[Rfam]
ffh sRNA: a 52-nucleotide sequence from Bartonella quintana. It is one of the family's seed sequences. Rfam classes the family as a small RNA. The base pairs follow the family's consensus structure, which is taken from published work.
RNA sequence: GAUCUCAGAGGUCAACAUCCGACGGCGCGAUGCGUUCUCGGAUGCCACUUUA
Dot-bracket structure: ...............(((((((..((((...))))..)))))))........